The record is a 213-nucleotide RNA sequence from Sandaracinobacteroides saxicola, which matches "permuted transfer-messenger RNA" in Rfam.
Its family is annotated with RNA catabolic process in the Gene Ontology.
The base pairs follow the family's consensus structure, which is taken from published work.
Bacterial tmRNA, also known as 10Sa RNA or SsrA, is named for its dual tRNA and mRNA-like properties.

[Rfam]
RNA sequence: GGUGAUGAACGAGUGCGUGGAAUAGGGAUAGCGGACCCGGGGGCAGUACCCGGCGGCUCCACCAGACCCCGCUGUUGCGGCGGGGAUUGACGGGGCCGAACCAGGAUCGACGUGUUUCGAAAGACGCAUUUUUUGCCCGGGCAGACACUCCCGUAAAACGGUUCAAAAUCCACAAAUGCCAACGACAACGAGGCAUUUGCGAUUGCCGCGUAA
Numbered sequence: 001g002g003u004g005a006u007g008a009a010c011g012a013g014u015g016c017g018u019g020g021a022a023u024a025g026g027g028a029u030a031g032c033g034g035a036c037c038c039g040g041g042g043g044c045a046g047u048a049c050c051c052g053g054c055g056g057c058u059c060c061a062c063c064a065g066a067c068c069c070c071g072c073u074g075u076u077g078c079g080g081c082g083g084g085g086a087u088u089g090a091c092g093g094g095g096c097c098g099a100a101c102c103a104g105g106a107u108c109g110a111c112g113u114g115u116u117u118c119g120a121a122a123g124a125c126g127c128a129u130u131u132u133u134u135g136c137c138c139g140g141g142c143a144g145a146c147a148c149u150c151c152c153g154u155a156a157a158a159c160g161g162u163u164c165a166a167a168a169u170c171c172a173c174a175a176a177u178g179c180c181a182a183c184g185a186c187a188a189c190g191a192g193g194c195a196u197u198u199g200c201g202a203u204u205g206c207c208g209c210g211u212a213a
Stems, first nucleotide, its partner, number of pairs: 001137005015127004027116003031113003037053005054098007138153004